[Rfam]
RNA sequence: GUGUAUAAGAGACAGGUGGCACUGCGUGUAUUUGACAAGCUGAGUCCGACACUCAGUGUGCAGAGUGUCAGUUUGUCAAAUACCCCAAGUGAGGCACUGCUGAGC
Numbered sequence: 001g002u003g004u005a006u007a008a009g010a011g012a013c014a015g016g017u018g019g020c021a022c023u024g025c026g027u028g029u030a031u032u033u034g035a036c037a038a039g040c041u042g043a044g045u046c047c048g049a050c051a052c053u054c055a056g057u058g059u060g061c062a063g064a065g066u067g068u069c070a071g072u073u074u075g076u077c078a079a080a081u082a083c084c085c086c087a088a089g090u091g092a093g094g095c096a097c098u099g100c101u102g103a104g105c
Base pairs, nucleotide, nucleotide: 020091021090022089023088026085028083029082030081031080032079033078034077035076036075037074038073039072040071041070048069049068050067051066053064054063